[Rfam]
Nucleotides: 265
Base pairs, nucleotide, nucleotide: 001159002158003157004156005155006154007153008152011145012144013143014142017045018044019043020042021041022040023039047102048101049100050099051098055096056095057094062089063088064087065086066085067082068081069080070079071078072077106140107139108138113133114132115131116130117129162179163178164177165176166175167174181263184261185260186259187258188204189203190202191201192200209255210254211253212251213250214249215248216247219243225238226237227236228235229234
Number, partner (000 for none) and nucleotide at each position: 001159g002158g003157a004156a005155u006154g007153u008152u009000g010000a011145g012144g013143a014142g015000g016000c017045c018044u019043g020042c021041c022040c023039a024000u025000a026000g027000u028000a029000c030000g031000a032000g033000a034000g035000g036000a037000c038000c039023u040022g041021g042020g043019u044018g045017g046000a047102c048101g049100a050099a051098c052000c053000u054000c055096u056095g057094g058000u059000a060000u061000g062089c063088c064087g065086g066085u067082u068081g069080u070079c071078g072077c073000g074000c075000c076000a077072g078071c079070g080069g081068c082067a083000c084000g085066g086065c087064c088063g089062g090000u091000u092000g093000g094057c095056c096055a097000c098051g099050u100049u101048c102047g103000g104000a105000a106140g107139g108138g109000a110000u111000a112000a113133c114132c115131g116130c117129u118000g119000a120000a121000a122000g123000c124000a125000u126000c127000u128000a129117a130116g131115c132114g133113g134000g135000a136000a137000g138108c139107c140106u141000g142014c143013u144012c145011c146000a147000a148000g149000a150000u151000a152008a153007g154006c155005a156004u157003u158002c159001c160000u161000a162179c163178a164177g165176c166175c167174c168000c169000a170000u171000c172000g173000u174167g175166g176165g177164c178163u179162g180000g181263u182000g183000a184261c185260c186259c187258c188204c189203c190202a191201u192200g193000c194000a195000g196000a197000a198000c199000a200192c201191g202190u203189g204188g205000u206000c207000g208000a209255u210254a211253g212251g213250c214249c215248g216247g217000a218000c219243g220000u221000g222000g223000a224000a225238g226237c227236c228235c229234c230000g231000c232000g233000a234229g235228g236227g237226g238225u239000g240000g241000a242000g243219c244000c245000g246000a247216c248215c249214g250213g251212u252000a253211c254210u255209a256000a257000c258187g259186g260185g261184g262000g263181a264000a265000c
Annotation
This 265-nucleotide part of an RNA from Bifidobacterium reuteri belongs to the Rfam family "Bacterial large subunit ribosomal RNA". A search with the family's covariance model found it, with a score of 2565 bits. Its family is annotated with ribosome and structural constituent of ribosome in the Gene Ontology.